[Rfam]
RNA sequence: ACACGGGAAGGGAGGUGGUCCAGGCUUUGAUAGGCAAUCGGACUCGUGAGGUGGCUGCCCGCUAGCCGCUGUCCUUGACAGUUGUUCGUUCGUCGAGACCGUGUGGCAGCGGCGCGGCGAAACCACGACAGCCACCCGACCCCCGGGGGUGCCGGCCCAGUCCAGCCGGCCCGCGUCAGCGGAAUCCCCCGGGGGUCGUCCUGU
Numbered sequence: 001a002c003a004c005g006g007g008a009a010g011g012g013a014g015g016u017g018g019u020c021c022a023g024g025c026u027u028u029g030a031u032a033g034g035c036a037a038u039c040g041g042a043c044u045c046g047u048g049a050g051g052u053g054g055c056u057g058c059c060c061g062c063u064a065g066c067c068g069c070u071g072u073c074c075u076u077g078a079c080a081g082u083u084g085u086u087c088g089u090u091c092g093u094c095g096a097g098a099c100c101g102u103g104u105g106g107c108a109g110c111g112g113c114g115c116g117g118c119g120a121a122a123c124c125a126c127g128a129c130a131g132c133c134a135c136c137c138g139a140c141c142c143c144c145g146g147g148g149g150u151g152c153c154g155g156c157c158c159a160g161u162c163c164a165g166c167c168g169g170c171c172c173g174c175g176u177c178a179g180c181g182g183a184a185u186c187c188c189c190c191g192g193g194g195g196u197c198g199u200c201c202u203g204u
Stems, first nucleotide, its partner, number of pairs: 014059006060119004065115002068113004073106002137198013151170006